[Rfam]
RNA: MIR828 microRNA precursor family
RNA sequence: CUAAUGUUUCUUGCUUAAAUGGGUAUUCCAUGGAAUUGAUUCACACUCACUAUGUAGACCUAACUACGAGUGGGAUUCUUCUCUCUUCAUGAGAUGCUCAUUUAAGCAAGCAAUGUUAG
Numbered sequence: 001c002u003a004a005u006g007u008u009u010c011u012u013g014c015u016u017a018a019a020u021g022g023g024u025a026u027u028c029c030a031u032g033g034a035a036u037u038g039a040u041u042c043a044c045a046c047u048c049a050c051u052a053u054g055u056a057g058a059c060c061u062a063a064c065u066a067c068g069a070g071u072g073g074g075a076u077u078c079u080u081c082u083c084u085c086u087u088c089a090u091g092a093g094a095u096g097c098u099c100a101u102u103u104a105a106g107c108a109a110g111c112a113a114u115g116u117u118a119g
Base pairs, nucleotide, nucleotide: 004116005115006114007113008112010110011109012108013107014106015105016104017103018102019101020100021099022098023097024096025095026094027093029091030090031089032088033087034086